A member of the RNA family "Pestivirus 3' UTR SLI" from Orthopestivirus australiaense, 61 nucleotides long. It is annotated as a cis-regulatory element. On this family, see Deng and Brock, Nucleic Acids Res 1993: "5' and 3' untranslated regions of pestivirus genome: primary and secondary structure analyses". The sequence is in the family's curated seed alignment.
[Rfam]
RNA sequence: AGCUGAUUGGGACGUAAGUGCAGACGUCCUGUAGGAGGACUAUGCACAGUUCCAAAAAGCC
Numbered sequence: 001a002g003c004u005g006a007u008u009g010g011g012a013c014g015u016a017a018g019u020g021c022a023g024a025c026g027u028c029c030u031g032u033a034g035g036a037g038g039a040c041u042a043u044g045c046a047c048a049g050u051u052c053c054a055a056a057a058a059g060c061c
Stems, first nucleotide, its partner, number of pairs: 002060003007055007020045003026040005